[Rfam]
RNA sequence: CCUUCAGGAACCCUGGAUUUAUGUGUGGGCUGGACUUUCUGAGAGCAUCUAGCACCAUAUAAAUUCAGCGUUCCGCGA
Numbered sequence: 001c002c003u004u005c006a007g008g009a010a011c012c013c014u015g016g017a018u019u020u021a022u023g024u025g026u027g028g029g030c031u032g033g034a035c036u037u038u039c040u041g042a043g044a045g046c047a048u049c050u051a052g053c054a055c056c057a058u059a060u061a062a063a064u065u066c067a068g069c070g071u072u073c074c075g076c077g078a
Stems, first nucleotide, its partner, number of pairs: 013068010024057002027055001030052002033049002

Shown here is a 78-nucleotide RNA from Mesorhabditis spiculigera, a member of the family "mir-83 microRNA precursor family". The literature on the family includes a 2010 paper in Nat Struct Mol Biol by Zisoulis et al., "Comprehensive discovery of endogenous Argonaute binding sites in Caenorhabditis elegans". The match comes from Rfam's covariance-model search (49 bits). NCBI's taxonomy places the organism under Eukaryota, Eumetazoa, Nematoda, Mesorhabditinae, Mesorhabditis. Its family is annotated with RISC complex and miRNA-mediated post-transcriptional gene silencing in the Gene Ontology.